RNA sequence: CGGGCCGUGAAGCCCCAGGUGGCGUCCCCGUCCACCAGCGCCUGCUCGCCGAAGUACGAGCCGUCGGCGAGGACCGCCAGCUCCGCCUCGUCGCCGUAGGGACCCGUGCCCAGCUUCUGGACCCGGCCGUGCGCCAGCAGAUAGACCUCGUCCGCCGCGUCACCCGCCGCGGCCAGGACCUGUCCGGCCGCGAACUCGCGCUGCUCGCAGCGGCGCGCCAGCUCGGCGAGGACGUCCUCGUCGCCGUACUCCCGCAGCGCGGGCAGCUCGCCCAGCUCGGCGGGGAUGACAGCGACGCGGUCGGCGGUCUGGACGAAGGUGACACGCCCGUCCCCGACGGCGUAGCUGAGCCGGCGGUUCACCCGGUACGUACCACCCUGCACCUGCACCCAUGGCAGCAUGCGCAGCAGCCACCGCGAGGUGAUCUCCUGCAUCUGCGGCGCGGACUUGGUGGUGGUCGCCAGGUUCCGCGCGGCGUCCGUACCCAGACUCUGCUGGGGCGGGAUCU
Numbered sequence: 001c002g003g004g005c006c007g008u009g010a011a012g013c014c015c016c017a018g019g020u021g022g023c024g025u026c027c028c029c030g031u032c033c034a035c036c037a038g039c040g041c042c043u044g045c046u047c048g049c050c051g052a053a054g055u056a057c058g059a060g061c062c063g064u065c066g067g068c069g070a071g072g073a074c075c076g077c078c079a080g081c082u083c084c085g086c087c088u089c090g091u092c093g094c095c096g097u098a099g100g101g102a103c104c105c106g107u108g109c110c111c112a113g114c115u116u117c118u119g120g121a122c123c124c125g126g127c128c129g130u131g132c133g134c135c136a137g138c139a140g141a142u143a144g145a146c147c148u149c150g151u152c153c154g155c156c157g158c159g160u161c162a163c164c165c166g167c168c169g170c171g172g173c174c175a176g177g178a179c180c181u182g183u184c185c186g187g188c189c190g191c192g193a194a195c196u197c198g199c200g201c202u203g204c205u206c207g208c209a210g211c212g213g214c215g216c217g218c219c220a221g222c223u224c225g226g227c228g229a230g231g232a233c234g235u236c237c238u239c240g241u242c243g244c245c246g247u248a249c250u251c252c253c254g255c256a257g258c259g260c261g262g263g264c265a266g267c268u269c270g271c272c273c274a275g276c277u278c279g280g281c282g283g284g285g286a287u288g289a290c291a292g293c294g295a296c297g298c299g300g301u302c303g304g305c306g307g308u309c310u311g312g313a314c315g316a317a318g319g320u321g322a323c324a325c326g327c328c329c330g331u332c333c334c335c336g337a338c339g340g341c342g343u344a345g346c347u348g349a350g351c352c353g354g355c356g357g358u359u360c361a362c363c364c365g366g367u368a369c370g371u372a373c374c375a376c377c378c379u380g381c382a383c384c385u386g387c388a389c390c391c392a393u394g395g396c397a398g399c400a401u402g403c404g405c406a407g408c409a410g411c412c413a414c415c416g417c418g419a420g421g422u423g424a425u426c427u428c429c430u431g432c433a434u435c436u437g438c439g440g441c442g443c444g445g446a447c448u449u450g451g452u453g454g455u456g457g458u459c460g461c462c463a464g465g466u467u468c469c470g471c472g473c474g475g476c477g478u479c480c481g482u483a484c485c486c487a488g489a490c491u492c493u494g495c496u497g498g499g500g501c502g503g504g505a506u507c508u
Stems, first nucleotide, its partner, number of pairs: 007389003011385002016380001018328002021325001025322002028319002031316002036312001038310001040308003046304003050300001054233002057230001060227004066110003078101001083096001085094002118221001120219001122217001127212001130209001133205001135203003140197001143196002149192002154189001155187003159183001160178002166173002234296003240290004245285001249283002252280003256277003259271003329342004353377002356374002361371002391431002394428002397425001399423003403418003407415001437476002440473001442471005447465006477507001480502003484499005
The record is a 508-nucleotide sequence from Streptomyces paludis, which matches "Saccharopolyspora sRNA 350" in Rfam. A reference for the family is Liu et al. (2013), "Prediction and characterization of small non-coding RNAs related to secondary metabolites in Saccharopolyspora erythraea", PLoS One. A search with the family's covariance model found it, with a score of 160 bits. The family's RNA type in Rfam is antisense RNA. The source organism's lineage runs through Bacteria, Actinomycetota, Actinomycetes, Kitasatosporales and Streptomyces. Rfam links the family to the GO term regulation of secondary metabolite biosynthetic process. The base pairs follow the family's consensus structure, which was predicted with RNAfold.